[Rfam]
RNA sequence: GCAUGGGUUUGGGCUUAUGGCAGGCCCGUCCCUGUGGGCCUCUCACAGAGUCUCAUGCAGAGCAAACUGUAGCCCUAAACCAUUGCCUGGUCUCCUUGCCCCUAGGCUGCAGGCCCUGAAACAGGUGCACAGUG
Numbered sequence: 001g002c003a004u005g006g007g008u009u010u011g012g013g014c015u016u017a018u019g020g021c022a023g024g025c026c027c028g029u030c031c032c033u034g035u036g037g038g039c040c041u042c043u044c045a046c047a048g049a050g051u052c053u054c055a056u057g058c059a060g061a062g063c064a065a066a067c068u069g070u071a072g073c074c075c076u077a078a079a080c081c082a083u084u085g086c087c088u089g090g091u092c093u094c095c096u097u098g099c100c101c102c103u104a105g106g107c108u109g110c111a112g113g114c115c116c117u118g119a120a121a122c123a124g125g126u127g128c129a130c131a132g133u134g
Stems, first nucleotide, its partner, number of pairs: 001058004005053004015048002018045003022041003025037002070127001072126003081118002086113002088109006
RNA: Small nucleolar RNA SNORA42/SNORA80 family
Organism: Orycteropus afer